Shown here is an 88-nucleotide sequence from Steroidobacter agaridevorans, a member of the family "sRNA-Xcc1".
Taxonomically the source falls in Steroidobacter (Bacteria, Pseudomonadati, Gammaproteobacteria, Steroidobacteraceae).
For this family Rfam cites "sRNA-Xcc1, an integron-encoded transposon- and plasmid-transferred trans-acting sRNA, is under the positive control of the key virulence regulators HrpG and HrpX of Xanthomonas campestris pathovar campestris" (Chen et al., RNA Biol, 2011).
Rfam classes the family as a small RNA.

[Rfam]
RNA sequence: GGUCGGGUGUGAGGCUAAUACAAGACUCCCGAAAGGGAGGAAUACGCCCGCCGUCUUCGAGCGGUUUUGAGCACCCGGCCACCAUCUC
Numbered sequence: 001g002g003u004c005g006g007g008u009g010u011g012a013g014g015c016u017a018a019u020a021c022a023a024g025a026c027u028c029c030c031g032a033a034a035g036g037g038a039g040g041a042a043u044a045c046g047c048c049c050g051c052c053g054u055c056u057u058c059g060a061g062c063g064g065u066u067u068u069g070a071g072c073a074c075c076c077g078g079c080c081a082c083c084a085u086c087u088c
Stems, first nucleotide, its partner, number of pairs: 001080009013048003016044002026039005050065005